[Rfam]
RNA sequence: UAAUCUCUUGUAACACUCCGUAAACCGAGACCUCUAGGGUGUAUAAACACGUCUCUAAUACCUCAGGCGGAGGGUGUCUGAGGAAUAUUCAUACUA
Numbered sequence: 001u002a003a004u005c006u007c008u009u010g011u012a013a014c015a016c017u018c019c020g021u022a023a024a025c026c027g028a029g030a031c032c033u034c035u036a037g038g039g040u041g042u043a044u045a046a047a048c049a050c051g052u053c054u055c056u057a058a059u060a061c062c063u064c065a066g067g068c069g070g071a072g073g074g075u076g077u078c079u080g081a082g083g084a085a086u087a088u089u090c091a092u093a094c095u096a
Stems, first nucleotide, its partner, number of pairs: 014041005021036002027055005062082007
Shown here is a 96-nucleotide RNA sequence, a member of the family "PhotoRC-II RNA". Rfam's curators put it in the seed alignment.